[Rfam]
RNA sequence: GGACAACCGGGUACCGGCUUGGACUCUGUCCGGCGGAUGGCAAACGGCUUCUGGUGUACUUCCCCAACAUCAGAACUGUUUCCCGCCGGGCAGGGCCCAACCGGUGCCGGGAGCGGUAAAA
Numbered sequence: 001g002g003a004c005a006a007c008c009g010g011g012u013a014c015c016g017g018c019u020u021g022g023a024c025u026c027u028g029u030c031c032g033g034c035g036g037a038u039g040g041c042a043a044a045c046g047g048c049u050u051c052u053g054g055u056g057u058a059c060u061u062c063c064c065c066a067a068c069a070u071c072a073g074a075a076c077u078g079u080u081u082c083c084c085g086c087c088g089g090g091c092a093g094g095g096c097c098c099a100a101c102c103g104g105u106g107c108c109g110g111g112a113g114c115g116g117u118a119a120a121a
Stems, first nucleotide, its partner, number of pairs: 010108007021098002024095013043080004050074008
Background:
A member of the RNA family "mraW RNA" from Corynebacterium mendelii, 121 nucleotides long. NCBI's taxonomy places the organism under Bacteria, Actinomycetota, Actinomycetes, Corynebacteriaceae, Corynebacterium. It scores 57 bits against the family's covariance model.